Annotation:
The family of this 204-nucleotide RNA sequence from Nakaseomyces glabratus is "Small nucleolar RNA snR32". The sequence is in the family's curated seed alignment. Rfam links the family to the GO terms nucleolus and RNA processing. Rfam classes the family as an H/ACA-box small nucleolar RNA. On this family, see Balakin et al., Nucleic Acids Res 1993: "SnR31, snR32, and snR33: three novel, non-essential snRNAs from Saccharomyces cerevisiae".
RNA sequence: AACAUCAUUUUUAUUAUCGCCUGUGACAGUACUAUCAGGAGAUUGUGAUUCUUUAUGAAUUGCUUUUUCCAUGUGGAAAUAAUCUUUCAAUGUUUUUUCCCCAUAUCGGUACUGUUCGAAGCGUAGAUAGACUUAAAGAACGUUGCUGGGCGCCUGGUGUUGAUAUCUUACAUGAGAUACUGGGAAUCAGCUGUAUCUACAUCU
Numbered sequence: 001a002a003c004a005u006c007a008u009u010u011u012u013a014u015u016a017u018c019g020c021c022u023g024u025g026a027c028a029g030u031a032c033u034a035u036c037a038g039g040a041g042a043u044u045g046u047g048a049u050u051c052u053u054u055a056u057g058a059a060u061u062g063c064u065u066u067u068u069c070c071a072u073g074u075g076g077a078a079a080u081a082a083u084c085u086u087u088c089a090a091u092g093u094u095u096u097u098u099c100c101c102c103a104u105a106u107c108g109g110u111a112c113u114g115u116u117c118g119a120a121g122c123g124u125a126g127a128u129a130g131a132c133u134u135a136a137a138g139a140a141c142g143u144u145g146c147u148g149g150g151c152g153c154c155u156g157g158u159g160u161u162g163a164u165a166u167c168u169u170a171c172a173u174g175a176g177a178u179a180c181u182g183g184g185a186a187u188c189a190g191c192u193g194u195a196u197c198u199a200c201a202u203c204u
Base pairs, nucleotide, nucleotide: 018123019122020121025116026115027114028113029112030111031110032109033108039069040068041067042066045063046062047061048060049059050058051057073102075100076099077098078094079093080092138197139196140194141193142192153184154183157180158179159178160177161176164172